RNA sequence: UUGGCAAUAUGAUCACUCCUGAUGAAAGCCUUCAACAGGAAGUCAGGAGUGUGAUGGACAGUCUA
Numbered sequence: 001u002u003g004g005c006a007a008u009a010u011g012a013u014c015a016c017u018c019c020u021g022a023u024g025a026a027a028g029c030c031u032u033c034a035a036c037a038g039g040a041a042g043u044c045a046g047g048a049g050u051g052u053g054a055u056g057g058a059c060a061g062u063c064u065a
Stems, first nucleotide, its partner, number of pairs: 001065001003063003014051010029039003